mir-190 microRNA precursor family: a 75-nucleotide sequence from Musca domestica. The source organism's lineage runs through Eukaryota, Opisthokonta, Diptera, Muscoidea and Musca.
[Rfam]
RNA sequence: ACGUUUGUAAGAAAUGUUUGAUUCAAGAGGGUUAGCUAUUUUCCCCCUCUUGAAUCAAACAUUUCUUACAAACGU
Number, nucleotide and partner (000 for none) at each position: 001a000002c000003g000004u000005u071006u070007g069008u068009a067010a000011g064012a063013a000014a062015u061016g060017u059018u058019u057020g056021a055022u054023u053024c052025a051026a000027g049028a048029g047030g046031g045032u000033u000034a000035g000036c000037u000038a000039u000040u000041u000042u000043c000044c000045c031046c030047c029048u028049c027050u000051u025052g024053a023054a022055u021056c020057a019058a018059a017060c016061a015062u014063u012064u011065c000066u000067u009068a008069c007070a006071a005072a000073c000074g000075u000
For this family Rfam cites "Cloning and expression of new microRNAs from zebrafish" (Kloosterman et al., Nucleic Acids Res, 2006). A search with the family's covariance model found it, with a score of 50 bits.